Shown here is a 149-nucleotide RNA sequence from Saimiri boliviensis, a member of the family "Small nucleolar RNA SNORA57". Rfam's curators write: U99 belongs to the H/ACA class of snoRNAs which are thought to guide the sites of modification of uridines to pseudouridines, the target for this family is unknown. The source organism's lineage runs through Eukaryota, Gnathostomata, Theria, Boreoeutheria and Saimiri boliviensis. Its family is annotated with RNA processing and nucleolus in the Gene Ontology. A reference for the family is Vitali et al. (2003), "Identification of 13 novel human modification guide RNAs", Nucleic Acids Res. The match comes from Rfam's covariance-model search (126 bits).
[Rfam]
RNA sequence: CCUCCUUUUCUUGGCGGGGACUGGGCUUGUGGUCUCACUCUCCCGAACGUACGGAGGAAGAGGGAAAGGGCUCUGGCCCCCUUGACGUCAUGUCUUUGGUGCCGAUGGCUUCCCAUCCGCGGGUUCUAUCCUCAAGUGCUGAGACACCA
Numbered sequence: 001c002c003u004c005c006u007u008u009u010c011u012u013g014g015c016g017g018g019g020a021c022u023g024g025g026c027u028u029g030u031g032g033u034c035u036c037a038c039u040c041u042c043c044c045g046a047a048c049g050u051a052c053g054g055a056g057g058a059a060g061a062g063g064g065a066a067a068g069g070g071c072u073c074u075g076g077c078c079c080c081c082u083u084g085a086c087g088u089c090a091u092g093u094c095u096u097u098g099g100u101g102c103c104g105a106u107g108g109c110u111u112c113c114c115a116u117c118c119g120c121g122g123g124u125u126c127u128a129u130c131c132u133c134a135a136g137u138g139c140u141g142a143g144a145c146a147c148c149a
Stems, first nucleotide, its partner, number of pairs: 001057005016043005022037004083141002086138003102123002106119003